[Rfam]
RNA sequence: AUGGUACUCAGAGUUCCCCCAAACACUUCAGUAGGAUAAAUUAGGGUACAUAUGUACUACCCUUGAUAAUUUCCCCAAUGAAGUGUUUGGGGGAACUCUGGGUACCAU
Numbered sequence: 001a002u003g004g005u006a007c008u009c010a011g012a013g014u015u016c017c018c019c020c021a022a023a024c025a026c027u028u029c030a031g032u033a034g035g036a037u038a039a040a041u042u043a044g045g046g047u048a049c050a051u052a053u054g055u056a057c058u059a060c061c062c063u064u065g066a067u068a069a070u071u072u073c074c075c076c077a078a079u080g081a082a083g084u085g086u087u088u089g090g091g092g093g094a095a096c097u098c099u100g101g102g103u104a105c106c107a108u
Base pairs, nucleotide, nucleotide: 005104006103007102008101009100011098012097013096014095015094016093017092018091019090020089021088022087023086024085025084026083027082028081029080030079032077034075035074
Record summary: Shown here is a 108-nucleotide RNA from Prunus armeniaca, a member of the family "mir-395 microRNA precursor family". Gene Ontology terms of the family: RISC complex and miRNA-mediated post-transcriptional gene silencing. A search with the family's covariance model found it, with a score of 68 bits. Rfam describes the family as follows. mir-395 was identified in both Arabidopsis thaliana and Oryza sativa computationally and was later experimentally verified. mir-395 is thought to target mRNAs coding for ATP sulphurylases. The mature sequence is excised from the 3' arm of the hairpin.